The family of this 175-nucleotide RNA from Oryza barthii is "MIR807 microRNA precursor family". The base pairs follow the family's consensus structure, which was predicted with WAR. The family has 30 seed sequences and 1,514 matches in Rfam 15.1. Taxonomically the source falls in Oryza (Eukaryota, Viridiplantae, Magnoliopsida, Petrosaviidae). A reference for the family is Luo et al. (2006), "Rice embryogenic calli express a unique set of microRNAs, suggesting regulatory roles of microRNAs in plant post-embryogenic development", FEBS Lett.
[Rfam]
RNA sequence: AACCACACUAUCGAUGAAUGGAUUCACCCGUGAGAUGACGUGGUUGUUCAUCUAGGAUGAGGACGUGUCAUCAUUAUUAAUUUCGUGCGAUGGCUAUAAUAGAAUGUCUUGUCCUCGUCCUAGGUGAAACAACCAUAUCAUCUCGCGAGUGAAUCUAUAAAUCGAUAGUGUAGUU
Numbered sequence: 001a002a003c004c005a006c007a008c009u010a011u012c013g014a015u016g017a018a019u020g021g022a023u024u025c026a027c028c029c030g031u032g033a034g035a036u037g038a039c040g041u042g043g044u045u046g047u048u049c050a051u052c053u054a055g056g057a058u059g060a061g062g063a064c065g066u067g068u069c070a071u072c073a074u075u076a077u078u079a080a081u082u083u084c085g086u087g088c089g090a091u092g093g094c095u096a097u098a099a100u101a102g103a104a105u106g107u108c109u110u111g112u113c114c115u116c117g118u119c120c121u122a123g124g125u126g127a128a129a130c131a132a133c134c135a136u137a138u139c140a141u142c143u144c145g146c147g148a149g150u151g152a153a154u155c156u157a158u159a160a161a162u163c164g165a166u167a168g169u170g171u172a173g174u175u
Base pairs, nucleotide, nucleotide: 001175002174003173005171006170007169009167010166011165012164013163014162015161018158019157021155022154023153024152025151026150027149030146031145032144033143035141036140037139038138041135042134043133044132045131046130047129048128050125051124053122054121056119057118062113063112064111069106070105071104074102075101076100077099078098079097086096087095